The family of this 107-nucleotide RNA is "Y RNA-like".
The family's consensus secondary structure is taken from published work.
Rfam's curators write: In Deinococcus radiodurans Rsr is tethered via Y RNA to the exoribonuclease PNPase and channels single-stranded RNA into the PNPase cavity. Rsr and Y RNA enhance degradation of structured RNAs by PNPase. This role could be conserved, as Rsr and ncRNAs called YrlA and YrlB (Y RNA like) also associate with PNPase in an evolutionary distant bacterium Salmonella Typhimurium.
It is annotated as a small RNA.
For this family Rfam cites "An RNA degradation machine sculpted by Ro autoantigen and noncoding RNA" (Chen et al., Cell, 2013).
RNA sequence: GCAGCGAAUGCCACAGGCACUACAUCGUGUCGCGGGUUCGAAUCCCGCCCCGGCAGCGGGUAGCUCAGUCGGUAGAGCAGAUGUGCCUGUCACCUCGUCGCUGCACG
Number, nucleotide and partner (000 for none) at each position: 001g000002c103003a102004g101005c100006g099007a098008a000009u000010g000011c000012c000013a090014c089015a088016g087017g086018c085019a084020c000021u000022a000023c000024a000025u081026c080027g000028u000029g000030u000031c000032g048033c047034g046035g045036g044037u000038u000039c072040g000041a000042a000043u000044c036045c035046c034047g033048c032049c060050c059051c058052g057053g000054c000055a000056g000057c052058g051059g050060g049061u000062a000063g078064c077065u076066c075067a000068g000069u000070c000071g000072g039073u000074a000075g066076a065077g064078c063079a000080g026081a025082u000083g000084u019085g018086c017087c016088u015089g014090u013091c000092a000093c000094c000095u000096c000097g000098u007099c006100g005101c004102u003103g002104c000105a000106c000107g000